[Rfam]
RNA sequence: UUAAUAUGAUGAUACCAGAGAAUGGUUUCGCUAACUUGACUGAUGUCCUGUGAUGUUAGACUUCUCUUGGCUGUCUGAUUAA
Numbered sequence: 001u002u003a004a005u006a007u008g009a010u011g012a013u014a015c016c017a018g019a020g021a022a023u024g025g026u027u028u029c030g031c032u033a034a035c036u037u038g039a040c041u042g043a044u045g046u047c048c049u050g051u052g053a054u055g056u057u058a059g060a061c062u063u064c065u066c067u068u069g070g071c072u073g074u075c076u077g078a079u080u081a082a
Stems, first nucleotide, its partner, number of pairs: 001082004